[Rfam]
RNA: Manganese Mn2+ riboswitch aptamer (yybP-ykoY)
Organism: Chimaeribacter arupi
RNA sequence: UGCGCCGUCAUUGGGGAGUAGCCGGUUUCUGAAUACAUUUUCAGAAGCGCCCGUAUCAACAUACUCGUUUCAUACAGAAACGUGGUGCGGGCAACCAGGUCAGGUUGGCGAGACCAUAGGCAUGUAACCCCGCGUUGGCUGGGGGUGGGUUACGUGCAUAUGGAGAGACCCGGCCGA
Numbered sequence: 001u002g003c004g005c006c007g008u009c010a011u012u013g014g015g016g017a018g019u020a021g022c023c024g025g026u027u028u029c030u031g032a033a034u035a036c037a038u039u040u041u042c043a044g045a046a047g048c049g050c051c052c053g054u055a056u057c058a059a060c061a062u063a064c065u066c067g068u069u070u071c072a073u074a075c076a077g078a079a080a081c082g083u084g085g086u087g088c089g090g091g092c093a094a095c096c097a098g099g100u101c102a103g104g105u106u107g108g109c110g111a112g113a114c115c116a117u118a119g120g121c122a123u124g125u126a127a128c129c130c131c132g133c134g135u136u137g138g139c140u141g142g143g144g145g146u147g148g149g150u151u152a153c154g155u156g157c158a159u160a161u162g163g164a165g166a167g168a169c170c171c172g173g174c175c176g177a
Stems, first nucleotide, its partner, number of pairs: 025048008049092010066082005